RNA: ASpks TB sRNA
RNA sequence: CUUCACCGAGCCCAGCCAGAGCGGCUCGGUGCGGUCCUGGCCGUAGGUGGCGAGCAGGGCCUGGGCCUC
Numbered sequence: 001c002u003u004c005a006c007c008g009a010g011c012c013c014a015g016c017c018a019g020a021g022c023g024g025c026u027c028g029g030u031g032c033g034g035u036c037c038u039g040g041c042c043g044u045a046g047g048u049g050g051c052g053a054g055c056a057g058g059g060c061c062u063g064g065g066c067c068u069c
Base pairs, nucleotide, nucleotide: 014026015025016024017023027063032059037054038053041050042049043048